[Rfam]
Overview
This 143-nucleotide sequence from Cnephaeus nilssonii belongs to the Rfam family "Small nucleolar RNA SNORA65". By type it is an H/ACA-box small nucleolar RNA. Rfam links the family to the GO terms RNA processing and nucleolus. It scores 90 bits against the family's covariance model. For this family Rfam cites "RNomics: an experimental approach that identifies 201 candidates for novel, small, non-messenger RNAs in mouse" (Huttenhofer et al., EMBO J, 2001).
RNA sequence: CUUGCCUCCUCUACCUGUACAUAAAAAAAUUAAGCUGUCUGUUGGCUGGUGCAUUCCAGUGGUGAGCUGAAACUAAACCCCAGCUUAGGAAACAGGGUUAUUCUUCAUGUGGGUGACUCUGUGCCGAAAGCAUGGGAACAACG
Numbered sequence: 001c002u003u004g005c006c007u008c009c010u011c012u013a014c015c016u017g018u019a020c021a022u023a024a025a026a027a028a029a030u031u032a033a034g035c036u037g038u039c040u041g042u043u044g045g046c047u048g049g050u051g052c053a054u055u056c057c058a059g060u061g062g063u064g065a066g067c068u069g070a071a072a073c074u075a076a077a078c079c080c081c082a083g084c085u086u087a088g089g090a091a092a093c094a095g096g097g098u099u100a101u102u103c104u105u106c107a108u109g110u111g112g113g114u115g116a117c118u119c120u121g122u123g124c125c126g127a128a129a130g131c132a133u134g135g136g137a138a139c140a141a142c143g
Stems, first nucleotide, its partner, number of pairs: 001049002004046001005044001078136003082133001083131004088125002093121006101113003
Dot-bracket structure: ((.((......................................).).))............................(((.(((((.((...((((((..(((.......)))..))))))..))..)))).)))).......